[Rfam]
RNA sequence: GUGUGGACAGUGUUCUUCAAUUUGUAAAUUUUGCACAAAGAAGUAUAUGGUUCAUAGAG
Numbered sequence: 001g002u003g004u005g006g007a008c009a010g011u012g013u014u015c016u017u018c019a020a021u022u023u024g025u026a027a028a029u030u031u032u033g034c035a036c037a038a039a040g041a042a043g044u045a046u047a048u049g050g051u052u053c054a055u056a057g058a059g
Stems, first nucleotide, its partner, number of pairs: 002056007010048003021039004
Source information:
Shown here is a 59-nucleotide sequence from Phascolarctos cinereus, a member of the family "mir-7386 microRNA precursor family". Pairs were carried over by alignment from the consensus structure, which was predicted with RNAalifold. A search with the family's covariance model found it, with a score of 44 bits. Lineage of the source: Eukaryota > Metazoa > Deuterostomia > Sarcopterygii > Phascolarctos. Gene Ontology terms of the family: RISC complex and miRNA-mediated post-transcriptional gene silencing.